[Rfam]
RNA: Small nucleolar RNA SNORD67
RNA sequence: UGUGAGUGUGAUGAGUUGCCCUGUGGUAGAGCAAUCAUGUUGGAUGACACGGACUCUGCUCAGAAUCUCCCUAAUGACAAAACUAAGUGCACAGGGGCCAUCUGACUUGCU
Numbered sequence: 001u002g003u004g005a006g007u008g009u010g011a012u013g014a015g016u017u018g019c020c021c022u023g024u025g026g027u028a029g030a031g032c033a034a035u036c037a038u039g040u041u042g043g044a045u046g047a048c049a050c051g052g053a054c055u056c057u058g059c060u061c062a063g064a065a066u067c068u069c070c071c072u073a074a075u076g077a078c079a080a081a082a083c084u085a086a087g088u089g090c091a092c093a094g095g096g097g098c099c100a101u102c103u104g105a106c107u108u109g110c111u
Stems, first nucleotide, its partner, number of pairs: 004110001006108001008106001022064001024062002026059004031054001038049004